[Rfam]
Prion pseudoknot: a 34-nucleotide RNA from Chinchilla lanigera. The literature on the family includes a 2001 paper in Nucleic Acids Res by Barrette et al., "Pseudoknots in prion protein mRNAs confirmed by comparative sequence analysis and pattern searching". Pairs were carried over by alignment from the consensus structure, which is taken from published work. This family represents a predicted pseudoknot structure found in prion protein mRNA. It has been suggested that the family has a possible effect in prion protein translation.
RNA sequence: CCAUGGUGGUGGCUGGGGUCAUGGAGGUGGCAGC
Numbered sequence: 001c002c003a004u005g006g007u008g009g010u011g012g013c014u015g016g017g018g019u020c021a022u023g024g025a026g027g028u029g030g031c032a033g034c
Base pairs, nucleotide, nucleotide: 001024002023003022004021005020006019